[Rfam]
The record is an 83-nucleotide RNA from Castor canadensis, which matches "mir-1343 microRNA precursor family" in Rfam.
The family has 8 seed sequences and 238 matches in Rfam 15.1.
Its family is annotated with miRNA-mediated post-transcriptional gene silencing and RISC complex in the Gene Ontology.
RNA sequence: CUGGCAUCAGUGCUGGGGAGUGGCCCUCGGGGCGGGCCUUCACUCCGGCCCCUCUUGGGGUCUGCACUUUCACUCCGGGCUCG
Numbered sequence: 001c002u003g004g005c006a007u008c009a010g011u012g013c014u015g016g017g018g019a020g021u022g023g024c025c026c027u028c029g030g031g032g033c034g035g036g037c038c039u040u041c042a043c044u045c046c047g048g049c050c051c052c053u054c055u056u057g058g059g060g061u062c063u064g065c066a067c068u069u070u071c072a073c074u075c076c077g078g079g080c081u082c083g
Stems, first nucleotide, its partner, number of pairs: 003081003007078002010075001012073001015070004020065004025060007034051005
Dot-bracket structure: ..(((.((.(.(..((((.((((.(((((((..(((((........)))))..))))))).)))).))))..).).)))))..